[Rfam]
RNA sequence: CGUUUAAUUGUAUUUUUAAAUUAAUUCUUAAAAAUUACAAAUUAAG
Numbered sequence: 001c002g003u004u005u006a007a008u009u010g011u012a013u014u015u016u017u018a019a020a021u022u023a024a025u026u027c028u029u030a031a032a033a034a035u036u037a038c039a040a041a042u043u044a045a046g
Base pairs, nucleotide, nucleotide: 003046004045005044006043007042008041009040010038011037012036013034014033015032016031017030018029019028

The record is a 46-nucleotide sequence from Drosophila albomicans, which matches "K10 transport/localisation element (TLS)" in Rfam. This family represents the 44 nucleotide K10 transport/localisation element (TLS) from Drosophila melanogaster. K10 TLS is responsible for the transport and anterior localisation of K10 mRNA and acts to establish dorsoventral polarity in the oocyte. Gene Ontology terms of the family: intracellular mRNA localization and mRNA transport. The family has 10 seed sequences and 18 matches in Rfam 15.1. The family's RNA type in Rfam is cis-regulatory element. A search with the family's covariance model found it, with a score of 50 bits.